[Rfam]
RNA: c-di-GMP-I riboswitch aptamer
RNA sequence: AUACGAUAAUGGCAAACUUAUUGAAAGAUAAGGACGCAACGCCCCGGUCUAAGGUUAAUAAACUAUGAUUGCAGGGUUACCGAA
Numbered sequence: 001a002u003a004c005g006a007u008a009a010u011g012g013c014a015a016a017c018u019u020a021u022u023g024a025a026a027g028a029u030a031a032g033g034a035c036g037c038a039a040c041g042c043c044c045c046g047g048u049c050u051a052a053g054g055u056u057a058a059u060a061a062a063c064u065a066u067g068a069u070u071g072c073a074g075g076g077u078u079a080c081c082g083a084a
Base pairs, nucleotide, nucleotide: 012037013036017032018031019030020029021028022027041077042076043075044074046072047069048068049067054063055062056061